[Rfam]
RNA: 6S-Flavo RNA
RNA sequence: ACUCAACAUUAUAUCUUUAAAAAGGAUAAGUCUAUUGUGUUAAAGCGAGCUGUAAUUUUAUACAGAUACUUGAUCACAAUGUUAGUCCUAAAACAUGUUUUUUGGAGUUU
Numbered sequence: 001a002c003u004c005a006a007c008a009u010u011a012u013a014u015c016u017u018u019a020a021a022a023a024g025g026a027u028a029a030g031u032c033u034a035u036u037g038u039g040u041u042a043a044a045g046c047g048a049g050c051u052g053u054a055a056u057u058u059u060a061u062a063c064a065g066a067u068a069c070u071u072g073a074u075c076a077c078a079a080u081g082u083u084a085g086u087c088c089u090a091a092a093a094c095a096u097g098u099u100u101u102u103u104g105g106a107g108u109u110u
Stems, first nucleotide, its partner, number of pairs: 023089005034080005043071003050065004